[Rfam]
RNA sequence: CUACCUUUCUCGGCCUUUUGAAUAAGAUCAAGUGUAGGAUCUGUUCUUAUCAGUUUAAUAUCUGAUAUGUGAGUUAUUGACUCACACUUUAAUUCAAUUUUUUUACGGGGAAAGUCCACUACGGUAGCUUGCUAUCGGGACUUUCUGGUGUCGCCUUGGCGUAGCACUACUGCUUUGGCUAGGCACACCCCAC
Numbered sequence: 001c002u003a004c005c006u007u008u009c010u011c012g013g014c015c016u017u018u019u020g021a022a023u024a025a026g027a028u029c030a031a032g033u034g035u036a037g038g039a040u041c042u043g044u045u046c047u048u049a050u051c052a053g054u055u056u057a058a059u060a061u062c063u064g065a066u067a068u069g070u071g072a073g074u075u076a077u078u079g080a081c082u083c084a085c086a087c088u089u090u091a092a093u094u095c096a097a098u099u100u101u102u103u104u105a106c107g108g109g110g111a112a113a114g115u116c117c118a119c120u121a122c123g124g125u126a127g128c129u130u131g132c133u134a135u136c137g138g139g140a141c142u143u144u145c146u147g148g149u150g151u152c153g154c155c156u157u158g159g160c161g162u163a164g165c166a167c168u169a170c171u172g173c174u175u176u177g178g179c180u181a182g183g184c185a186c187a188c189c190c191c192a193c
Stems, first nucleotide, its partner, number of pairs: 008027003012023001015020001048067006069085007110145008124135004148186005155177001158174003
Dot-bracket structure: .......(((.(..(....)..).)))....................((((((........)))))).(((((((...)))))))........................((((((((......((((....))))..))))))))..(((((..(..(((...........)))..)....))))).......
RNA: U2 spliceosomal RNA
Organism: Nicotiana sylvestris